[Rfam]
RNA sequence: GCUGACAUCUUUACCUGACAGUAUUAGAAAAUGCAGGUACAAGUCUAAUGCUGUUAGGUAAGAUGCCAUU
Numbered sequence: 001g002c003u004g005a006c007a008u009c010u011u012u013a014c015c016u017g018a019c020a021g022u023a024u025u026a027g028a029a030a031a032u033g034c035a036g037g038u039a040c041a042a043g044u045c046u047a048a049u050g051c052u053g054u055u056a057g058g059u060a061a062g063a064u065g066c067c068a069u070u
Base pairs, nucleotide, nucleotide: 003068004067006065007064008063009062011061012060013059014058015057016056017055018054019053020052021051022050023049024048025047026046027045028044
RNA: mir-8/mir-141/mir-200 microRNA precursor family